Record summary
A member of the RNA family "tRNA" from Pseudoramibacter alactolyticus, 73 nucleotides long. NCBI's taxonomy places the organism under Bacteria, Bacillota, Eubacteriaceae, Pseudoramibacter, Pseudoramibacter alactolyticus. Pairs were carried over by alignment from the consensus structure, which is taken from published work.
[Rfam]
RNA sequence: GCCUUUGUAGCUCAGUUGGUAGAGCACCACCGUGGUAAGGUGGGGGUCACCAGUUCGAAUCUGGUCAAAGGCU
Numbered sequence: 001g002c003c004u005u006u007g008u009a010g011c012u013c014a015g016u017u018g019g020u021a022g023a024g025c026a027c028c029a030c031c032g033u034g035g036u037a038a039g040g041u042g043g044g045g046g047u048c049a050c051c052a053g054u055u056c057g058a059a060u061c062u063g064g065u066c067a068a069a070g071g072c073u
Stems, first nucleotide, its partner, number of pairs: 001072007010025004027043005049065005